[Rfam]
RNA sequence: UGGACAGAUUAUUGUAUUCAACUAUAUUCAUGACGUAAAAUAGGAAAUUACAUUAUUUUUAAAAGGAAUGUGAAUCAAUUAACAUAAUAGACUCCU
Numbered sequence: 001u002g003g004a005c006a007g008a009u010u011a012u013u014g015u016a017u018u019c020a021a022c023u024a025u026a027u028u029c030a031u032g033a034c035g036u037a038a039a040a041u042a043g044g045a046a047a048u049u050a051c052a053u054u055a056u057u058u059u060u061a062a063a064a065g066g067a068a069u070g071u072g073a074a075u076c077a078a079u080u081a082a083c084a085u086a087a088u089a090g091a092c093u094c095c096u
Stems, first nucleotide, its partner, number of pairs: 002095003009090007017082002020080002023077001026075006034065001036063001037059007

A member of the RNA family "MIR6152 microRNA precursor family" from Nicotiana sylvestris, 96 nucleotides long. The organism belongs to Nicotiana, within Eukaryota. It scores 86 bits against the family's covariance model. The family's consensus secondary structure was predicted with RNAalifold.